The record is a 148-nucleotide RNA from Biomphalaria glabrata, which matches "Small nucleolar RNA SNORA79" in Rfam.
For this family Rfam cites "A computational screen for mammalian pseudouridylation guide H/ACA RNAs" (Schattner et al., RNA, 2006).
[Rfam]
Nucleotides: 148
Base pairs, nucleotide, nucleotide: 001056002055003054004053005052006051008049014043015042016041017040020037021036022035023034070140071139072138073137074136082127083126084125085124086123087122088121089120090119091118096114097113098112099111100110
Number, partner (000 for none) and nucleotide at each position: 001056u002055g003054a004053c005052a006051g007000g008049c009000u010000u011000u012000c013000c014043a015042c016041a017040g018000a019000c020037a021036u022035g023034u024000u025000u026000g027000a028000a029000g030000a031000u032000u033000a034023a035022c036021a037020u038000u039000g040017u041016u042015g043014u044000u045000u046000u047000u048000a049008g050000a051006c052005u053004g054003u055002c056001a057000u058000a059000c060000a061000u062000u063000a064000a065000a066000g067000u068000a069000a070140g071139c072138a073137u074136u075000g076000c077000u078000u079000c080000a081000c082127c083126c084125a085124g086123u087122u088121u089120g090119u091118u092000u093000a094000g095000a096114u097113c098112u099111u100110a101000u102000c103000a104000a105000g106000g107000u108000g109000a110100u111099a112098g113097g114096a115000g116000g117000u118091a119090a120089c121088a122087g123086a124085c125084u126083g127082g128000g129000a130000u131000u132000u133000g134000u135000g136074g137073g138072u139071g140070c141000u142000u143000a144000c145000a146000u147000a148000u

Record summary:
The family's consensus secondary structure was predicted with RNAalifold. Lineage of the source: Eukaryota > Opisthokonta > Spiralia > Mollusca > Biomphalaria. Rfam 15.1 lists 944 matches to the family in 375 species. Rfam links the family to the GO terms nucleolus and RNA processing. Rfam describes the family as follows. ACA65 (SNORA79) is a member of the H/ACA class of snoRNAs that guide the sites of modification of uridines to pseudouridines. This snoRNA was identified by computational screening and its expression in mouse experimentally verified by Northern blot and primer extension analysis.